[Rfam]
RNA sequence: GGAUCUAUGAUGAGAACAAGUCUCUGAGUACGGUGAUUGACUCAUACAAAUGGGAAUUUAAGGUAC
Numbered sequence: 001g002g003a004u005c006u007a008u009g010a011u012g013a014g015a016a017c018a019a020g021u022c023u024c025u026g027a028g029u030a031c032g033g034u035g036a037u038u039g040a041c042u043c044a045u046a047c048a049a050a051u052g053g054g055a056a057u058u059u060a061a062g063g064u065a066c
Stems, first nucleotide, its partner, number of pairs: 001066001003064003

The family of this 66-nucleotide RNA from Mesocricetus auratus is "Small nucleolar RNA SNORD109A". The source organism's lineage runs through Eukaryota, Eumetazoa, Mammalia, Rodentia and Mesocricetus. Humans have two copies of the SNORD109 gene, SNORD109A and SNORD109B. The family's consensus secondary structure was predicted with WAR. A search with the family's covariance model found it, with a score of 48 bits. Its Rfam clan is "SNORD74 clan". For this family Rfam cites "The IC-SNURF-SNRPN transcript serves as a host for multiple small nucleolar RNA species and as an antisense RNA for UBE3A" (Runte et al., Hum Mol Genet, 2001). Its family is annotated with RNA processing and nucleolus in the Gene Ontology.